[Rfam]
RNA sequence: CCUGCCACUAUACCUGUCCUGAAUUCUGUGGCUGGUAUAUUCCAGUGGUGAGCUGAGAGGAAGCCCCAGUCCAGGAAGCAGUCCUCUUCUCAUUGUGGGGAGGCCUGUGCCGAAAGGCUGGGAACAAGU
Dot-bracket structure: ....(((((........((.(.(.....)..).))........)))))...............(((.(.(...((...(((.((..(((.......)))..)).)))..))....)..)))).......
RNA: Small nucleolar RNA SNORA65
Organism: Balaeniceps rex